Notes
A member of the RNA family "SAM riboswitch aptamer (S box leader)" from Bacillaceae bacterium SAS-127, 111 nucleotides long. Rfam links the family to the GO term regulation of gene expression. The source organism's lineage runs through Bacteria, Bacillati, Bacillota, Bacilli and Bacillaceae.

RNA sequence: UUCUUAUCAAGAGAAGCCGAGGGUACUGGCCCUAGGACGCUUCAGCAACCAGCCGACAAUCGGCCCGGUGCUAACUCCAGCAAACGACUUUAUUCGUUUGACAGAUAAGAA
Dot-bracket structure: ((((((((....(((((...(((..[[[[)))......)))))((((.((.(((.......)))..))))))...(]]]]((((((........))))))..)))))))))